small nucleolar RNA snoR114: an 84-nucleotide RNA sequence from Gossypium davidsonii. The organism belongs to Gossypium, within Eukaryota. Rfam classes the family as a C/D-box small nucleolar RNA.
[Rfam]
RNA sequence: GAGCUGUGUUGAGUAUUGCGCUGUCCUGAUGGUUAGGGUCAUCAUAAUCGCCUGAUUUCAGAUGUUAGCUGCGCUGCUGAGCUU
Numbered sequence: 001g002a003g004c005u006g007u008g009u010u011g012a013g014u015a016u017u018g019c020g021c022u023g024u025c026c027u028g029a030u031g032g033u034u035a036g037g038g039u040c041a042u043c044a045u046a047a048u049c050g051c052c053u054g055a056u057u058u059c060a061g062a063u064g065u066u067a068g069c070u071g072c073g074c075u076g077c078u079g080a081g082c083u084u
Base pairs, nucleotide, nucleotide: 001084002083003082004081